RNA sequence: GCUAUGAUGCCGGAGCUAGCUUGAGUAAAAUCCUGGCUCAGGCGGUGUACGUUCUACGUGCGUGAAUCAUUAUCAGAAAUCU
Numbered sequence: 001g002c003u004a005u006g007a008u009g010c011c012g013g014a015g016c017u018a019g020c021u022u023g024a025g026u027a028a029a030a031u032c033c034u035g036g037c038u039c040a041g042g043c044g045g046u047g048u049a050c051g052u053u054c055u056a057c058g059u060g061c062g063u064g065a066a067u068c069a070u071u072a073u074c075a076g077a078a079a080u081c082u
Base pairs, nucleotide, nucleotide: 015046016045017044019043020042021041022040023039024038025037026036047061048060049059050058051057
This 82-nucleotide sequence from Citrobacter koseri belongs to the Rfam family "Peptidase-S11 RNA".
NCBI's taxonomy places the organism under Bacteria, Pseudomonadota, Gammaproteobacteria, Enterobacterales, Citrobacter koseri.